[Rfam]
RNA sequence: UCUAGCGCCUGACACCGGACUCCCAGCCAUACGCCCUGACGCACUUCCCCGGUGUCAGGUCGGAAUGGAUGGGGAUCCGGAAUCAGGGGCACGGGCCC
Numbered sequence: 001u002c003u004a005g006c007g008c009c010u011g012a013c014a015c016c017g018g019a020c021u022c023c024c025a026g027c028c029a030u031a032c033g034c035c036c037u038g039a040c041g042c043a044c045u046u047c048c049c050c051g052g053u054g055u056c057a058g059g060u061c062g063g064a065a066u067g068g069a070u071g072g073g074g075a076u077c078c079g080g081a082a083u084c085a086g087g088g089g090c091a092c093g094g095g096c097c098c
Base pairs, nucleotide, nucleotide: 010085011084012083015080016079018077019076021074022073023072024071025070027068028067029066030065032062033061035059036058037057038056039055040054041053042052
Dot-bracket structure: .........(((..((.((.(((((.((((.((.((((((((.........)))))))).))..)))).))))).)).))..))).............
Annotation
This 98-nucleotide sequence from Leifsonia aquatica belongs to the Rfam family "mraW RNA". Rfam classes the family as a cis-regulatory element. Taxonomically the source falls in Leifsonia aquatica (Bacteria, Bacillati, Actinomycetota, Micrococcales). The base pairs follow the family's consensus structure, which is taken from published work. Rfam 15.1 lists 851 matches to the family in 821 species. The match comes from Rfam's covariance-model search (54 bits).